[Rfam]
RNA sequence: GCUGGGGCGGGUGUGUGCGCCUGUAGUCCCAGCUGCUCGGGAGGCUGAGGUGGGAGGAUCGCUUGAGUCUAGGAGUUCUGGGCUGCAGUGCACUAUGCUGAUCAGGGGUCCACACUAAGUUUGACAUCACUAUGGUGACUUCCCGGGAGCGGGGACCACAGGGUUGCCUAAGGAGGGGUGAACUGGCCCAGGUUGGAAAUGGAGCGGGUCAGAACUCCCGUGCUGACCAGUAGUGGGAUCGUGCCUGUGAAUAGCCGCUGCACUACAACCUGGGCAGUACAGUGAGAGCCGGUCUCUU
Numbered sequence: 001g002c003u004g005g006g007g008c009g010g011g012u013g014u015g016u017g018c019g020c021c022u023g024u025a026g027u028c029c030c031a032g033c034u035g036c037u038c039g040g041g042a043g044g045c046u047g048a049g050g051u052g053g054g055a056g057g058a059u060c061g062c063u064u065g066a067g068u069c070u071a072g073g074a075g076u077u078c079u080g081g082g083c084u085g086c087a088g089u090g091c092a093c094u095a096u097g098c099u100g101a102u103c104a105g106g107g108g109u110c111c112a113c114a115c116u117a118a119g120u121u122u123g124a125c126a127u128c129a130c131u132a133u134g135g136u137g138a139c140u141u142c143c144c145g146g147g148a149g150c151g152g153g154g155a156c157c158a159c160a161g162g163g164u165u166g167c168c169u170a171a172g173g174a175g176g177g178g179u180g181a182a183c184u185g186g187c188c189c190a191g192g193u194u195g196g197a198a199a200u201g202g203a204g205c206g207g208g209u210c211a212g213a214a215c216u217c218c219c220g221u222g223c224u225g226a227c228c229a230g231u232a233g234u235g236g237g238a239u240c241g242u243g244c245c246u247g248u249g250a251a252u253a254g255c256c257g258c259u260g261c262a263c264u265a266c267a268a269c270c271u272g273g274g275c276a277g278u279a280c281a282g283u284g285a286g287a288g289c290c291g292g293u294c295u296c297u298u
Stems, first nucleotide, its partner, number of pairs: 001045003004022003007018003027042003047296005053290002059285005067275007079267002082264001084262007093254004098249001103247004108242002110237002113235005119228001121226003125222003128166002131163001133161001135159003140154001142153004167173002175218005184211005193202003